[Rfam]
RNA: MIR4374 microRNA precursor family
RNA sequence: CAAAGACGGUGCUUACAUCAACAAUGUCUUUGAAAGUAAGCAUUCUAAGACGUUGCUAACGGAAGCACCGUCUUUGAAUGCCUACUUUCAAAGACGUUGCUGAGGUAAACAUCGUCUUU
Numbered sequence: 001c002a003a004a005g006a007c008g009g010u011g012c013u014u015a016c017a018u019c020a021a022c023a024a025u026g027u028c029u030u031u032g033a034a035a036g037u038a039a040g041c042a043u044u045c046u047a048a049g050a051c052g053u054u055g056c057u058a059a060c061g062g063a064a065g066c067a068c069c070g071u072c073u074u075u076g077a078a079u080g081c082c083u084a085c086u087u088u089c090a091a092a093g094a095c096g097u098u099g100c101u102g103a104g105g106u107a108a109a110c111a112u113c114g115u116c117u118u119u
Stems, first nucleotide, its partner, number of pairs: 004117004009112003013108004018103003022099017041080005047074006054067004